Shown here is a 92-nucleotide sequence from Asticcacaulis benevestitus, a member of the family "Glycine riboswitch aptamer". It scores 63 bits against the family's covariance model. The pairing is the family consensus, mapped onto this sequence. Rfam links the family to the GO term glycine biosynthetic process.
[Rfam]
RNA sequence: GAUACCCCUACGGGAGAGAGUGUAGCUUCGGUUACACCGCCGAAGGCGCAACCGCCCCGGAAACGCUCAGGCCCACGGACCGUAGGAUAACU
Numbered sequence: 001g002a003u004a005c006c007c008c009u010a011c012g013g014g015a016g017a018g019a020g021u022g023u024a025g026c027u028u029c030g031g032u033u034a035c036a037c038c039g040c041c042g043a044a045g046g047c048g049c050a051a052c053c054g055c056c057c058c059g060g061a062a063a064c065g066c067u068c069a070g071g072c073c074c075a076c077g078g079a080c081c082g083u084a085g086g087a088u089a090a091c092u
Base pairs, nucleotide, nucleotide: 007086008085009084010083011082012081013080020037021036022035023034039072040071041070042068043067046066047065048064052060053059